[Rfam]
RNA sequence: GCGGUACCGGUUCCCGCCGCGCGCACCACAUCCAGUGUGCGACCGCGCGCAGAGCAGCUGAGGCGACCCGGCGACC
Numbered sequence: 001g002c003g004g005u006a007c008c009g010g011u012u013c014c015c016g017c018c019g020c021g022c023g024c025a026c027c028a029c030a031u032c033c034a035g036u037g038u039g040c041g042a043c044c045g046c047g048c049g050c051a052g053a054g055c056a057g058c059u060g061a062g063g064c065g066a067c068c069c070g071g072c073g074a075c076c
Stems, first nucleotide, its partner, number of pairs: 003076003007071004015065004020060001021058002
This 76-nucleotide sequence from Nonomuraea endophytica belongs to the Rfam family "L31-Actinobacteria ribosomal protein leader". Taxonomically the source falls in Nonomuraea (Bacteria, Bacillati, Actinomycetota, Streptosporangiaceae). The family's consensus secondary structure is taken from published work. The family's RNA type in Rfam is cis-regulatory leader. The literature on the family includes a 2020 paper in BMC Microbiol by Eckert and Weinberg, "Discovery of 20 novel ribosomal leader candidates in bacteria and archaea". The match comes from Rfam's covariance-model search (40 bits). Its Rfam clan is "Ribosomal Protein L31 Leader clan".